[Rfam]
Record summary: Rfam assigns this 110-nucleotide sequence from Glycine max to the family "MIR1520 microRNA precursor family". It is one of the family's seed sequences. Pairs were carried over by alignment from the consensus structure, which was predicted with RNAalifold. The source organism's lineage runs through Eukaryota, Viridiplantae, Embryophyta, Pentapetalae and Glycine subgen. Soja.
RNA sequence: AUGAUGACUAUCACAUGUCAUGUUCUGAUUGGAUGUUAACUCUAUGAAAAAACAAAUACAUUGUUGUUUUCAUUGAUCAAUCAGAACAUGACACGUGACAAUUAUCAUCC
Numbered sequence: 001a002u003g004a005u006g007a008c009u010a011u012c013a014c015a016u017g018u019c020a021u022g023u024u025c026u027g028a029u030u031g032g033a034u035g036u037u038a039a040c041u042c043u044a045u046g047a048a049a050a051a052a053c054a055a056a057u058a059c060a061u062u063g064u065u066g067u068u069u070u071c072a073u074u075g076a077u078c079a080a081u082c083a084g085a086a087c088a089u090g091a092c093a094c095g096u097g098a099c100a101a102u103u104a105u106c107a108u109c110c
Base pairs, nucleotide, nucleotide: 011098012097013096016093019090020089021088023086024085025084026083028081029080030079
The family has 18 seed sequences and 1,934 matches in Rfam 15.1.